The record is a 135-nucleotide sequence from Egibacter rhizosphaerae, which matches "Group II catalytic intron D1-D4-4" in Rfam.
The match comes from Rfam's covariance-model search (94 bits).
Group II introns are found in rRNA, tRNA and mRNA of organelles in fungi, plants and protists, and also in mRNA in bacteria.
Its family is annotated with Group II intron splicing in the Gene Ontology.

[Rfam]
Nucleotides: 135
Base pairs, nucleotide, nucleotide: 020042021041022040023039024038049090050089051088052087053086054081055080056079057078058077059076063072065070099109100108101107102106112128113127114126
Number, partner (000 for none) and nucleotide at each position: 001000c002000g003000g004000c005000c006000g007000g008000u009000g010000a011000g012000a013000g014000u015000c016000c017000g018000g019000u020042c021041c022040g023039g024038g025000u026000a027000g028000c029000u030000g031000c032000c033000a034000g035000g036000g037000g038024c039023c040022c041021g042020g043000u044000a045000g046000c047000a048000g049090g050089c051088u052087g053086g054081c055080g056079g057078c058077u059076c060000g061000g062000c063072u064000u065070g066000g067000a068000a069000a070065c071000g072063g073000g074000u075000c076059g077058g078057g079056u080055c081054g082000g083000a084000g085000u086053c087052c088051a089050g090049c091000g092000u093000c094000g095000a096000a097000a098000g099109c100108c101107c102106c103000g104000u105000u106102g107101g108100g109099g110000g111000a112128g113127c114126g115000a116000c117000u118000g119000a120000g121000c122000g123000g124000u125000c126114c127113g128112c129000a130000g131000c132000a133000u134000g135000a